[Rfam]
RNA sequence: GCCGGGCCUUGUAGCGUGGGUCUGUAAUCCAAGUGGAGGCAUGCAGGAAAAGGGACAUUGGCUUAGCCUAGUGGGCUGGAUUCAGAACUAGCUAUCUACUGGCCUGCCCGUUCCAAGCUGGGAGUUGGGCCUUGUGGUUUGGACGAAAGUAUGAUCCACUGGGCUCCUAAAGUGGAGUGUAAUGCGUGAGGCUGGUUUCACAGAGCAACAAACACCUCCCGUUCUCGGCAGUGGAAGGACAACGGGCCGGUGUUAUGUUACCUGGGUCCACCAUGGCUCAUUGGGCUGACUUUAAUAGGAUCAUUUUUUAA
Dot-bracket structure: (((((((((........))))))....(((....))))))....((((((.((..(.((((.((((.((((((((((((((((((.(.(((.((....((((((((.((.(((((.(((((((((.((((((.((((.(((.((....)).))).)))).))))))(....).((((.....(..((....(((......)))....))..)...)))).)))))))))..)))))))....)))))))))))))).....)))))))).....)))))))))).)))).).)))..)..)).))))))..
RNA: Plant signal recognition particle RNA